[Rfam]
RNA sequence: UUCCCGGGCAGCUUUUGUGAUUUAGCAAUUGUGACUUUUGCAAAUUGCAUAGUCACAAAAGUGAUCGGGGAG
Numbered sequence: 001u002u003c004c005c006g007g008g009c010a011g012c013u014u015u016u017g018u019g020a021u022u023u024a025g026c027a028a029u030u031g032u033g034a035c036u037u038u039u040g041c042a043a044a045u046u047g048c049a050u051a052g053u054c055a056c057a058a059a060a061g062u063g064a065u066c067g068g069g070g071a072g
Base pairs, nucleotide, nucleotide: 002071003070004069005068007066009063011062012061013060014059015058016057017056018055019054020053021052025048026047027046028045029044030043
Record summary:
Rfam assigns this 72-nucleotide sequence from Lottia gigantea to the family "mir-153 microRNA precursor family". Rfam links the family to the GO terms RISC complex and miRNA-mediated post-transcriptional gene silencing. The sequence is in the family's curated seed alignment. The family has 63 seed sequences and 1,565 matches in Rfam 15.1. Taxonomically the source falls in Lottia (Eukaryota, Metazoa, Lophotrochozoa, Gastropoda).